A member of the RNA family "SAM-III riboswitch aptamer (SMK box)" from Atopostipes suicloacalis, 81 nucleotides long. A reference for the family is Fuchs et al. (2006), "The S(MK) box is a new SAM-binding RNA for translational regulation of SAM synthetase", Nat Struct Mol Biol. A search with the family's covariance model found it, with a score of 52 bits. Taxonomically the source falls in Atopostipes suicloacalis (Bacteria, Bacillota, Bacilli, Atopostipes).
Nucleotides: 081
Stems, first nucleotide, its partner, number of pairs: 014071005022047003026041002029038002053066002
Number, partner (000 for none) and nucleotide at each position: 001000u002000a003000g004000g005000u006000u007000u008000a009000c010000a011000a012000a013000a014071u015070u016069c017068c018067c019000g020000a021000u022047a023046g024045g025000a026041c027040g028000u029038c030037a031000c032000a033000u034000c035000c036000g037030u038029g039000c040027c041026g042000g043000a044000g045024c046023c047022u048000u049000g050000u051000a052000a053066c054065c055000g056000a057000a058000u059000a060000u061000u062000u063000a064000a065054g066053g067018g068017g069016g070015a071014a072000u073000a074000c075000g076000u077000u078000a079000a080000u081000g